Notes
t44 RNA: an 88-nucleotide RNA from Candidatus Enterovibrio altilux. The family's consensus secondary structure was predicted with LocARNA. It scores 78 bits against the family's covariance model. The source organism's lineage runs through Bacteria, Pseudomonadota, Gammaproteobacteria, Vibrionaceae and Enterovibrio. On this family, see Tjaden et al., Nucleic Acids Res 2002: "Transcriptome analysis of Escherichia coli using high-density oligonucleotide probe arrays". From the family's description: This family consists of a number of bacterial RNA genes of between 135 and 170 bases in length. The t44 gene has been identified in several species of enteric bacteria but homologs have also been identified in Pseudomonas and Coxiella species. The t44 gene is found between the map and rpsB genes in all species in the full alignment apart from Shigella flexneri. The function of this RNA is unknown.
[Rfam]
RNA sequence: UGUUAUUUUAAUUUAACUCACACACAUAUCGACGCAUGCUCCGGGGUGCCCAUUAGGGUCGGACGUAUGAGAUAUGUGGAGGCCUAAC
Numbered sequence: 001u002g003u004u005a006u007u008u009u010a011a012u013u014u015a016a017c018u019c020a021c022a023c024a025c026a027u028a029u030c031g032a033c034g035c036a037u038g039c040u041c042c043g044g045g046g047u048g049c050c051c052a053u054u055a056g057g058g059u060c061g062g063a064c065g066u067a068u069g070a071g072a073u074a075u076g077u078g079g080a081g082g083c084c085u086a087a088c
Base pairs, nucleotide, nucleotide: 023078024077025076026075027074028073029072030071035069036068037067038066039065040063041062042061043060048059049058050057051056